[Rfam]
A member of the RNA family "Small Cajal body specific RNA 8" from Pipistrellus kuhlii, 127 nucleotides long.
Rfam 15.1 lists 955 matches to the family in 741 species.
Taxonomically the source falls in Pipistrellus (Eukaryota, Teleostomi, Tetrapoda, Chiroptera).
The family's consensus secondary structure is taken from published work.
The match comes from Rfam's covariance-model search (100 bits).
Nucleotides: 127
Base pairs, nucleotide, nucleotide: 002054004052006050007049022038023037024036025035064121065120066119067118068117069116070115078106079105083101084100085099086098
Number, partner (000 for none) and nucleotide at each position: 001000u002054g003000a004052g005000a006050g007049g008000c009000u010000g011000a012000u013000a014000c015000a016000u017000a018000c019000a020000c021000u022038g023037g024036g025035c026000u027000g028000c029000a030000g031000u032000g033000c034000u035025g036024c037023u038022c039000u040000g041000u042000c043000a044000c045000c046000a047000u048000a049007c050006c051000c052004c053000c054002c055000u056000c057000g058000a059000a060000u061000a062000a063000a064121c065120u066119g067118c068117c069116u070115u071000c072000u073000g074000a075000g076000g077000a078106c079105c080000a081000g082000g083101a084100u085099g086098a087000a088000c089000u090000g091000a092000g093000a094000g095000a096000a097000a098086u099085u100084g101083u102000a103000a104000c105079g106078g107000a108000c109000a110000g111000a112000u113000a114000c115070a116069g117068g118067g119066c120065a121064g122000a123000c124000a125000g126000c127000g
Record summary:
By type it is a small Cajal body RNA. scaRNAs are a specific class of small nuclear RNAs which localise to the Cajal bodies and guide the modification of RNA polymerase II transcribed spliceosomal RNAs U1, U2, U4, U5 and U12. On this family, see Darzacq et al., EMBO J 2002: "Cajal body-specific small nuclear RNAs: a novel class of 2'-O-methylation and pseudouridylation guide RNAs".